[Rfam]
RNA sequence: CAAACGGCUCUUUUCAGAGCCACCCCACAUUUCCACCAAAAGCUAG
Dot-bracket structure: .....((((((....)))))).........................

Annotation:
The record is a 46-nucleotide RNA sequence from Dipodomys ordii, which matches "Histone 3' UTR stem-loop" in Rfam. The base pairs follow the family's consensus structure, which is taken from published work. It scores 39 bits against the family's covariance model. For this family Rfam cites "Molecular mechanisms for the regulation of histone mRNA stem-loop-binding protein by phosphorylation" (Zhang et al., Proc Natl Acad Sci U S A, 2014).